Annotation:
This 154-nucleotide RNA sequence from Amborella trichopoda belongs to the Rfam family "MIR8565 microRNA precursor family". The family's consensus secondary structure was predicted with RNAalifold.
[Rfam]
RNA sequence: CCCCUACCCGUGUGCGUAGGACCUCAAAGGAUCGCCAUUAAAAUUGGCACGGAUCUCUAGAAAAGUUAUCACAUGGGUGUGGGACUUGAUUUUUCUAUAGAUCCGUGUCAAAUUUAAUGGUGAUCACUUGGGGUCCUACACACAUGGGUGGGGG
Numbered sequence: 001c002c003c004c005u006a007c008c009c010g011u012g013u014g015c016g017u018a019g020g021a022c023c024u025c026a027a028a029g030g031a032u033c034g035c036c037a038u039u040a041a042a043a044u045u046g047g048c049a050c051g052g053a054u055c056u057c058u059a060g061a062a063a064a065g066u067u068a069u070c071a072c073a074u075g076g077g078u079g080u081g082g083g084a085c086u087u088g089a090u091u092u093u094u095c096u097a098u099a100g101a102u103c104c105g106u107g108u109c110a111a112a113u114u115u116a117a118u119g120g121u122g123a124u125c126a127c128u129u130g131g132g133g134u135c136c137u138a139c140a141c142a143c144a145u146g147g148g149u150g151g152g153g154g
Stems, first nucleotide, its partner, number of pairs: 002153012016139012030125003034121009044111013058097011069082005